[Rfam]
RNA sequence: CGGAGGCGUCGCGACUGGCGUCUGGGUGGGUCACCACCGGGGAGCGACCAUCACGGAUUCGACCGCGCGCCUGGGCCGAUGAG
Numbered sequence: 001c002g003g004a005g006g007c008g009u010c011g012c013g014a015c016u017g018g019c020g021u022c023u024g025g026g027u028g029g030g031u032c033a034c035c036a037c038c039g040g041g042g043a044g045c046g047a048c049c050a051u052c053a054c055g056g057a058u059u060c061g062a063c064c065g066c067g068c069g070c071c072u073g074g075g076c077c078g079a080u081g082a083g
Stems, first nucleotide, its partner, number of pairs: 003052002006049001008048005015041002017071005026037004060078002063075002
Dot-bracket structure: ..((.(.(((((..(([[[[[....((((....))))..))..)))))).)).......((.((..]]]]]..)).)).....